About this RNA:
The family of this 70-nucleotide RNA sequence is "Small nucleolar RNA R160". Rfam links the family to the GO terms RNA processing and nucleolus. Rfam's curators put it in the seed alignment. Rfam describes the family as follows. snoR160 is a C/D box small nucleolar RNA, which acts as a methylation guide for 25S ribosomal RNA in plants. snoR160 has been alternatively named snoZ270 in rice. The family has 9 seed sequences and 799 matches in Rfam 15.1. It is annotated as a C/D-box small nucleolar RNA.

[Rfam]
RNA sequence: UACAAAUGAAGAGGCUAUUUGUUCUGAAGUAUCUAAAUCCAUUCAUAGUCUUCAAAGUUCUCUGAUUGUU
Numbered sequence: 001u002a003c004a005a006a007u008g009a010a011g012a013g014g015c016u017a018u019u020u021g022u023u024c025u026g027a028a029g030u031a032u033c034u035a036a037a038u039c040c041a042u043u044c045a046u047a048g049u050c051u052u053c054a055a056a057g058u059u060c061u062c063u064g065a066u067u068g069u070u
Stems, first nucleotide, its partner, number of pairs: 002069004